[Rfam]
RNA: Potassium channel RNA editing signal
RNA sequence: GUGGGUUACGGCGACAUGGCGCCCGUCACCGUGGGCGGGAAGCUGGUGGGGUCUCUGUGCGCCAUCGCGGGGGUGCUCACCAUCUCCCUGCCCGUCCCCGUCAUCGUCUCCAAC
Number, nucleotide and partner (000 for none) at each position: 001g114002u113003g000004g111005g110006u000007u000008a107009c106010g105011g104012c000013g102014a101015c100016a000017u000018g097019g096020c000021g095022c094023c000024c000025g000026u000027c000028a000029c000030c000031g000032u000033g000034g000035g000036c000037g077038g076039g000040a074041a000042g000043c000044u000045g000046g000047u000048g000049g063050g062051g000052u000053c000054u000055c000056u000057g000058u000059g000060c000061g000062c050063c049064a000065u000066c000067g000068c000069g000070g000071g000072g000073g000074u040075g000076c038077u037078c000079a000080c000081c000082a000083u000084c000085u000086c000087c000088c000089u000090g000091c000092c000093c000094g022095u021096c019097c018098c000099c000100g015101u014102c013103a000104u011105c010106g009107u008108c000109u000110c005111c004112a000113a002114c001